Shown here is an 81-nucleotide RNA sequence from Microcaecilia unicolor, a member of the family "mir-128 microRNA precursor family".
Pairs were carried over by alignment from the consensus structure, which was predicted with RNAalifold.
A reference for the family is Chen et al. (2005), "The developmental miRNA profiles of zebrafish as determined by small RNA cloning", Genes Dev.
RNA sequence: GAGCUGUUGGAUUUGGGGCCGGAGCACUGCCUGAGAGGGUUACGUAUCUCACAGUGAACCGGUCUCUUUUUCAGCUGCUUC
Numbered sequence: 001g002a003g004c005u006g007u008u009g010g011a012u013u014u015g016g017g018g019c020c021g022g023a024g025c026a027c028u029g030c031c032u033g034a035g036a037g038g039g040u041u042a043c044g045u046a047u048c049u050c051a052c053a054g055u056g057a058a059c060c061g062g063u064c065u066c067u068u069u070u071u072c073a074g075c076u077g078c079u080u081c
Base pairs, nucleotide, nucleotide: 006075007074008073009072010071015066016065017064018063019062020061021060025056026055027054028053029052033050034049035048